[Rfam]
RNA sequence: CUCUUAUUGAGAGAGGCUGAGGGACUGGCCCUGUGACGCCCGGCAACCAUUCAUAAUUUAAUUUAUGAACAGGUGCUAAAUCCUGCAAAAUACGAAUGUAUUUUGAAAAAUAAGAG
Numbered sequence: 001c002u003c004u005u006a007u008u009g010a011g012a013g014a015g016g017c018u019g020a021g022g023g024a025c026u027g028g029c030c031c032u033g034u035g036a037c038g039c040c041c042g043g044c045a046a047c048c049a050u051u052c053a054u055a056a057u058u059u060a061a062u063u064u065a066u067g068a069a070c071a072g073g074u075g076c077u078a079a080a081u082c083c084u085g086c087a088a089a090a091u092a093c094g095a096a097u098g099u100a101u102u103u104u105g106a107a108a109a110a111u112a113a114g115a116g
Stems, first nucleotide, its partner, number of pairs: 001116008013041001015040003021031003025085001027083002042077004047073002050069006081108001086105006
The record is a 116-nucleotide RNA from Cytobacillus horneckiae, which matches "SAM riboswitch aptamer (S box leader)" in Rfam. Its family is annotated with regulation of gene expression in the Gene Ontology.